This 214-nucleotide sequence from Thiopseudomonas alkaliphila belongs to the Rfam family "sucA-II RNA". By type it is a cis-regulatory element. NCBI's taxonomy places the organism under Bacteria, Pseudomonadota, Gammaproteobacteria, Pseudomonadaceae, Thiopseudomonas.

RNA sequence: CCCUGCUAAAUACGCUGAUAUACCUGUAUUAGCAGGGAUAAUGAAAGCAGUGCUUAUCCAGCACUGCUUUUACGAACAUGACGACCAGCAGGAGCCUCUGGGUAAAGCUCAGACUAUCUGCGGGAUUCGUAGUGGCUUUAUCGAAGUCGCUGCAAUUGACUUCUAUAGUCACUAGUUUCCUUACCGGUAGAGGCUCCUUAUCCAAGGGUGACCU
Numbered sequence: 001c002c003c004u005g006c007u008a009a010a011u012a013c014g015c016u017g018a019u020a021u022a023c024c025u026g027u028a029u030u031a032g033c034a035g036g037g038a039u040a041a042u043g044a045a046a047g048c049a050g051u052g053c054u055u056a057u058c059c060a061g062c063a064c065u066g067c068u069u070u071u072a073c074g075a076a077c078a079u080g081a082c083g084a085c086c087a088g089c090a091g092g093a094g095c096c097u098c099u100g101g102g103u104a105a106a107g108c109u110c111a112g113a114c115u116a117u118c119u120g121c122g123g124g125a126u127u128c129g130u131a132g133u134g135g136c137u138u139u140a141u142c143g144a145a146g147u148c149g150c151u152g153c154a155a156u157u158g159a160c161u162u163c164u165a166u167a168g169u170c171a172c173u174a175g176u177u178u179c180c181u182u183a184c185c186g187g188u189a190g191a192g193g194c195u196c197c198u199u200a201u202c203c204a205a206g207g208g209u210g211a212c213c214u
Stems, first nucleotide, its partner, number of pairs: 001037009045069006052062003090198005095192001097113006114190005120184001122182001124180001128175001131173006138167001144162005